[Rfam]
RNA sequence: AAAAAGGGCUUCUGUGUGAGUGGCACGUGUAGAGCAGCUUGAUUGCUCUAUGUGUGGAAUUGACAUCACGGGAUUUCAGAAGCAUUCGUUUUUGGUACUUGGGCAGCUGGUGAUCAUUGGUCCUGGCGCCUGC
Numbered sequence: 001a002a003a004a005a006g007g008g009c010u011u012c013u014g015u016g017u018g019a020g021u022g023g024c025a026c027g028u029g030u031a032g033a034g035c036a037g038c039u040u041g042a043u044u045g046c047u048c049u050a051u052g053u054g055u056g057g058a059a060u061u062g063a064c065a066u067c068a069c070g071g072g073a074u075u076u077c078a079g080a081a082g083c084a085u086u087c088g089u090u091u092u093u094g095g096u097a098c099u100u101g102g103g104c105a106g107c108u109g110g111u112g113a114u115c116a117u118u119g120g121u122c123c124u125g126g127c128g129c130c131u132g133c
Base pairs, nucleotide, nucleotide: 008083009082010081011080012079013025014024015023016021026054027053028052029051030050031049032048033047034046035045036044037043055078056077057076058075059074060073061072101131102130103129104128106127107126108125109124110123112122113121114120115119
The family of this 133-nucleotide RNA from Cnephaeus nilssonii is "U11 spliceosomal RNA". Rfam links the family to the GO terms U11 snRNP, mRNA 5'-splice site recognition and pre-mRNA 5'-splice site binding. A search with the family's covariance model found it, with a score of 88 bits. The family's RNA type in Rfam is spliceosomal small nuclear RNA. The family's consensus secondary structure is taken from published work.